[Rfam]
The record is a 39-nucleotide RNA from Amycolatopsis acidiphila, which matches "L31-Actinobacteria ribosomal protein leader" in Rfam.
RNA sequence: CCGGCUCCGGUUCACCUCGCGUGCGGGGACCCGGCGGCC
Numbered sequence: 001c002c003g004g005c006u007c008c009g010g011u012u013c014a015c016c017u018c019g020c021g022u023g024c025g026g027g028g029a030c031c032c033g034g035c036g037g038c039c
Stems, first nucleotide, its partner, number of pairs: 003039003007034004015028005
It scores 49 bits against the family's covariance model. The organism belongs to Amycolatopsis, within Bacteria. Clan: Ribosomal Protein L31 Leader clan. A reference for the family is Eckert and Weinberg (2020), "Discovery of 20 novel ribosomal leader candidates in bacteria and archaea", BMC Microbiol. The base pairs follow the family's consensus structure, which is taken from published work.